[Rfam]
RNA sequence: UUAAGAGAAUGCCUCUGUCAUUACCCGCCAUGAGCGGAUAUGGGAAUGCAAUUGUAGA
Numbered sequence: 001u002u003a004a005g006a007g008a009a010u011g012c013c014u015c016u017g018u019c020a021u022u023a024c025c026c027g028c029c030a031u032g033a034g035c036g037g038a039u040a041u042g043g044g045a046a047u048g049c050a051a052u053u054g055u056a057g058a
Stems, first nucleotide, its partner, number of pairs: 007053002010050003018043004025037003
RNA: Transposase-1 RNA